[Rfam]
RNA sequence: GUACUCGGAUUCACAUCAAUCCAUAUGUGUUGGGGUGGAUUGAAGUGGAUCUUGAGCUAAAUUUUACAGCAAUCCACCUCAACACAUGUGGAUUGAGAUGAAUCUAACA
Numbered sequence: 001g002u003a004c005u006c007g008g009a010u011u012c013a014c015a016u017c018a019a020u021c022c023a024u025a026u027g028u029g030u031u032g033g034g035g036u037g038g039a040u041u042g043a044a045g046u047g048g049a050u051c052u053u054g055a056g057c058u059a060a061a062u063u064u065u066a067c068a069g070c071a072a073u074c075c076a077c078c079u080c081a082a083c084a085c086a087u088g089u090g091g092a093u094u095g096a097g098a099u100g101a102a103u104c105u106a107a108c109a
Stems, first nucleotide, its partner, number of pairs: 005107001007105007016096017035077008045067003
Shown here is a 109-nucleotide sequence from Miscanthus lutarioriparius, a member of the family "MIR5565 microRNA precursor family". The family's consensus secondary structure was predicted with RNAalifold. Taxonomically the source falls in Miscanthus (Eukaryota, Streptophytina, Panicoideae, Andropogoneae).